RNA: Rhodo-rpoB RNA
Organism: Rhodobacter xanthinilyticus
Nucleotides: 094
Base pairs, nucleotide, nucleotide: 001043002042003041004040005039010031011030012029013028014027015026016025017024067094069092070091071090072089073088075086076085
Number, partner (000 for none) and nucleotide at each position: 001043g002042g003041c004040u005039c006000g007000g008000g009000a010031g011030c012029g013028c014027a015026u016025c017024g018000g019000u020000g021000g022000g023000a024017c025016g026015a027014u028013g029012c030011g031010c032000a033000g034000g035000u036000a037000u038000g039005g040004g041003g042002c043001c044000g045000c046000u047000u048000c049000c050000u051000c052000c053000u054000u055000c056000a057000u058000u059000c060000g061000c062000c063000u064000g065000c066000g067094g068000c069092g070091c071090g072089c073088a074000c075086c076085g077000g078000g079000c080000c081000c082000c083000g084000a085076c086075g087000a088073u089072g090071c091070g092069c093000a094067c